The record is a 107-nucleotide RNA sequence from Aquimarina muelleri, which matches "6S-Flavo RNA" in Rfam. It scores 110 bits against the family's covariance model. The organism belongs to Aquimarina, within Bacteria. Rfam classes the family as a small RNA. The family's consensus secondary structure is taken from published work.
RNA sequence: ACUCAACAAGAAUUAAUUAAAAAGGGUGAGUUUAAAUUGUGAAAGCGCGCCGCCUUGAGCGGAUUCUUGAGCAGUUUGUUAGCCCUAAACCUGUUUUUACAGAGUUU
Number, nucleotide and partner (000 for none) at each position: 001a000002c000003u000004c000005a000006a000007c000008a000009a000010g000011a000012a000013u000014u000015a000016a000017u000018u000019a000020a000021a000022a000023a086024g085025g084026g083027u082028g000029a000030g000031u000032u000033u000034a077035a076036a075037u074038u073039g000040u000041g000042a000043a068044a067045g066046c000047g000048c000049g000050c062051c061052g060053c059054c000055u000056u000057g000058a000059g053060c052061g051062g050063a000064u000065u000066c045067u044068u043069g000070a000071g000072c000073a038074g037075u036076u035077u034078g000079u000080u000081a000082g027083c026084c025085c024086u023087a000088a000089a000090c000091c000092u000093g000094u000095u000096u000097u000098u000099a000100c000101a000102g000103a000104g000105u000106u000107u000